[Rfam]
RNA sequence: AUAUAGCUACACGACUGGCGGAACGCAGCCUGCUGCAGUGGAGAUUACCCACAGGGAGUGUAGAAUAGUGAAAGCCGACCGCCUGGGCACCGUCU
Number, nucleotide and partner (000 for none) at each position: 001a000002u000003a000004u000005a000006g000007c063008u062009a061010c060011a059012c058013g000014a000015c055016u054017g083018g082019c081020g080021g079022a000023a000024c000025g000026c000027a000028g000029c000030c000031u000032g000033c000034u000035g000036c000037a000038g052039u051040g050041g049042a000043g000044a000045u000046u000047a000048c000049c041050c040051a039052c038053a000054g016055g015056g000057a000058g012059u011060g010061u009062a008063g007064a000065a000066u000067a000068g000069u000070g000071a000072a000073a000074g088075c087076c086077g000078a000079c021080c020081g019082c018083c017084u000085g000086g076087g075088c074089a000090c000091c000092g000093u000094c000095u000
Annotation
Shown here is a 95-nucleotide sequence from Firmicutes bacterium AF22-6AC, a member of the family "ZMP/ZTP riboswitch aptamer (pfl RNA motif)". The literature on the family includes a 2015 paper in Nat Struct Mol Biol by Jones and Ferre-D'Amare, "Recognition of the bacterial alarmone ZMP through long-distance association of two RNA subdomains". The family's consensus secondary structure is taken from published work. A search with the family's covariance model found it, with a score of 50 bits. Lineage of the source: Bacteria > Bacillati > Bacillota.